[Rfam]
RNA: M-box riboswitch aptamer (ykoK leader)
Organism: Anaerobranca californiensis
RNA sequence: AUAUAACCUCGUUAGGUGAGGCUACUAUAUGAACAUAGGCUACUGCCCAGAAAUGUCUAGAGACACCAAUGGGUAGAACAGGCAUUGCCGAAAUAAGGCAUGCUUAAUGUAGCUGAGUGUUAUCAAUUAACUACUCUACGUCAUAUAGUGCUGAAACUCAAACGUAUGAGGUAGGUU
Dot-bracket structure: .....((((((([.(((..(((..((((((((......(((((.(((((....((((....))))....)))))......((((..(((......]))).))))....))))).(((((............)))))....)))))))).)))...)))...))....))))).....